[Rfam]
RNA: U1 spliceosomal RNA
RNA sequence: AUACUUACCUGGCAGGGGAGGUACCUUGAUUACGAAGGUGGUUUUCCCAAGGCGAAGCUUAUCCAUCGCACUCCGGAUGUGCUGACCCCUGCGAUUUUCCCAAAUGUGGUAAACUCAACUGCAUAAUUUGUGGUAGUGGGGGACUAUGUUCGUGCUUUCCCCGG
Dot-bracket structure: ...........((((((((((.(((.(..........).)))))))))(.((.(.(((.(((((..........))))).)))..))).)..(((((.((.......)).))).))..))))..............(((((.(...((....))...)))))).